[Rfam]
Source information
The record is a 75-nucleotide RNA sequence from Balaenoptera physalus, which matches "Small nucleolar RNA SNORD113/SNORD114 family" in Rfam. The organism belongs to Balaenoptera, within Eukaryota. The family's consensus secondary structure is taken from published work. About the family: The imprinted human domain at 14q32 contains two clusters of tandemly repeated small nucleolar RNAs named 14q(I) and 14q(II) snoRNAs. These two clusters are named SNORD113 and SNORD114 respectively in the HGNC approved gene symbol nomenclature. A search with the family's covariance model found it, with a score of 78 bits. For this family Rfam cites "Identification of tandemly-repeated C/D snoRNA genes at the imprinted human 14q32 domain reminiscent of those at the Prader-Willi/Angelman syndrome region" (Cavaille et al., Hum Mol Genet, 2002).
RNA sequence: UGGACCAGUGAUGACCGUUGGUGGAGUAUGAGCCCUGGACGAUGACUACUUAGUGUCUGAAACUCUGAGGUCCAA
Number, nucleotide and partner (000 for none) at each position: 001u000002g073003g072004a071005c070006c069007a000008g000009u000010g000011a000012u000013g000014a000015c000016c000017g000018u000019u000020g000021g000022u000023g000024g000025a000026g000027u000028a000029u000030g000031a000032g000033c000034c000035c000036u000037g000038g000039a000040c000041g000042a000043u000044g000045a000046c000047u000048a000049c000050u000051u000052a000053g000054u000055g000056u000057c000058u000059g000060a000061a000062a000063c000064u000065c000066u000067g000068a000069g006070g005071u004072c003073c002074a000075a000